[Rfam]
A member of the RNA family "FMN riboswitch aptamer (RFN element)" from Secundilactobacillus malefermentans, 121 nucleotides long. The source organism's lineage runs through Bacteria, Bacillati, Bacilli, Lactobacillaceae and Secundilactobacillus. About the family: The RFN element is a highly conserved domain that is found frequently in the 5'-untranslated regions of prokaryotic mRNAs that encode for flavin mononucleotide (FMN) biosynthesis and transport proteins. This element is a metabolite-dependent riboswitch that directly binds FMN in the absence of proteins.
RNA sequence: GUUCAUCUUCAGGGCAGGGUGUAAUUCCCGACCGGUGGUUAAAGUCCGCGACCUAGCGUAAGCUAGUUGAACUGGUGUAAUUCCAGUACCGACAGUAAAGUCUGGUAUAUAGAAGAUUAGU
Dot-bracket structure: ..(.((((((......(((.......))).[[((((((.....[[))))...((..........))....(((((.......)))))]])).(((....]]))).......)))))).)..